[Rfam]
RNA sequence: GGAGUUGGGCAGACCGUCGCUGCCGGUCGCGUUCGCGCGGCCGGGGGAGGAAAGUCCGGGCUCCGCAGGGCAGGGCGCUGGGGAAAUCCCAGAGGGAGUGAUCCCUGGACAGUGCCACAGAAAACAGACCGCCCGUACCUUGGCUCGCGCCAGGAAGUGCGGGUAAGGGUGAAACGGUGGGGUAAGAGCCCACCAGUUGUCGCGGUGACGCGGCAAGCUCGGUAAACCCCGCCCGGAGCAAGACCAAAUAGGGGAGUGUUUGAGGUUUGCCCGACCGAAACUCCCGGGUAGGUCGCUUGAGGCAGGGAGUAAUCUCUGUCCUAGAGGAAUGACGGUCCUCGAUACAAAACCCGGCUUACGCCCAACUCCAUUU
Numbered sequence: 001g002g003a004g005u006u007g008g009g010c011a012g013a014c015c016g017u018c019g020c021u022g023c024c025g026g027u028c029g030c031g032u033u034c035g036c037g038c039g040g041c042c043g044g045g046g047g048a049g050g051a052a053a054g055u056c057c058g059g060g061c062u063c064c065g066c067a068g069g070g071c072a073g074g075g076c077g078c079u080g081g082g083g084a085a086a087u088c089c090c091a092g093a094g095g096g097a098g099u100g101a102u103c104c105c106u107g108g109a110c111a112g113u114g115c116c117a118c119a120g121a122a123a124a125c126a127g128a129c130c131g132c133c134c135g136u137a138c139c140u141u142g143g144c145u146c147g148c149g150c151c152a153g154g155a156a157g158u159g160c161g162g163g164u165a166a167g168g169g170u171g172a173a174a175c176g177g178u179g180g181g182g183u184a185a186g187a188g189c190c191c192a193c194c195a196g197u198u199g200u201c202g203c204g205g206u207g208a209c210g211c212g213g214c215a216a217g218c219u220c221g222g223u224a225a226a227c228c229c230c231g232c233c234c235g236g237a238g239c240a241a242g243a244c245c246a247a248a249u250a251g252g253g254g255a256g257u258g259u260u261u262g263a264g265g266u267u268u269g270c271c272c273g274a275c276c277g278a279a280a281c282u283c284c285c286g287g288g289u290a291g292g293u294c295g296c297u298u299g300a301g302g303c304a305g306g307g308a309g310u311a312a313u314c315u316c317u318g319u320c321c322u323a324g325a326g327g328a329a330u331g332a333c334g335g336u337c338c339u340c341g342a343u344a345c346a347a348a349a350c351c352c353g354g355c356u357u358a359c360g361c362c363c364a365a366c367u368c369c370a371u372u373u
Stems, first nucleotide, its partner, number of pairs: 001369010012337007020047002023044008052357003056354005061238004068272004073234005078092005093106005107229002112227002114223003129168002131164008176194006196218001197216008242294004252285006264276004301320008
RNA: Bacterial RNase P class A